[Rfam]
RNA sequence: GCCUGGGCGCAGUGGUUUAUCGAUCCCUUCCCUGCCUUGUGCGCUGAUCCAGGAGCGGCGAUUUCGUGAGAGUUCUCUUUUUCCCUUGUUACAGCCAUCAACAACAACGCGGGAAUCGAUCGAUAAACCUCUGCAUCCAGUU
Numbered sequence: 001g002c003c004u005g006g007g008c009g010c011a012g013u014g015g016u017u018u019a020u021c022g023a024u025c026c027c028u029u030c031c032c033u034g035c036c037u038u039g040u041g042c043g044c045u046g047a048u049c050c051a052g053g054a055g056c057g058g059c060g061a062u063u064u065c066g067u068g069a070g071a072g073u074u075c076u077c078u079u080u081u082u083c084c085c086u087u088g089u090u091a092c093a094g095c096c097a098u099c100a101a102c103a104a105c106a107a108c109g110c111g112g113g114a115a116u117c118g119a120u121c122g123a124u125a126a127a128c129c130u131c132u133g134c135a136u137c138c139a140g141u142u
Base pairs, nucleotide, nucleotide: 003140004139005138006137007136009134010133011132012131014129015128016127017126018125019124020123021122022121023120024119025118028115029114030113031112032111034110035109037107038106039105
A member of the RNA family "MIR162_2 microRNA precursor family" from Leersia perrieri, 142 nucleotides long. Rfam 15.1 lists 43 matches to the family in 26 species. The family is grouped with related families in Rfam's "MIR167 microRNA precursor clan".